Rfam assigns this 75-nucleotide sequence from Bifidobacterium stellenboschense to the family "Fluoride riboswitch aptamer (crcB RNA motif)". The base pairs follow the family's consensus structure, which is taken from published work. A search with the family's covariance model found it, with a score of 40 bits.
[Rfam]
RNA sequence: UUGCACGCAGGCGAUGGAACCCGCCCGGAAACCCGUUUUCCGAACCGCAUUACCGCUGAUAGUUCCUACACGAUC
Numbered sequence: 001u002u003g004c005a006c007g008c009a010g011g012c013g014a015u016g017g018a019a020c021c022c023g024c025c026c027g028g029a030a031a032c033c034c035g036u037u038u039u040c041c042g043a044a045c046c047g048c049a050u051u052a053c054c055g056c057u058g059a060u061a062g063u064u065c066c067u068a069c070a071c072g073a074u075c
Stems, first nucleotide, its partner, number of pairs: 010025004016066005047056002